[Rfam]
RNA sequence: UGACCAGGGGGUCGGGCUGUUCUGACGGUUACUGAGUCGGAGUGGCCUAGGGGUACAGGGAGUACCUCCGUAAUGGGCCGGGUCAGGAAAGGU
Numbered sequence: 001u002g003a004c005c006a007g008g009g010g011g012u013c014g015g016g017c018u019g020u021u022c023u024g025a026c027g028g029u030u031a032c033u034g035a036g037u038c039g040g041a042g043u044g045g046c047c048u049a050g051g052g053g054u055a056c057a058g059g060g061a062g063u064a065c066c067u068c069c070g071u072a073a074u075g076g077g078c079c080g081g082g083u084c085a086g087g088a089a090a091g092g093u
Base pairs, nucleotide, nucleotide: 001085002084003083004082005081010079011078012077013076014048015047016046017045018044020042021041022040023039024038025037026036050068051067052066053065054064055063056062
RNA: ivy-DE RNA
Organism: Pseudomonas cremoricolorata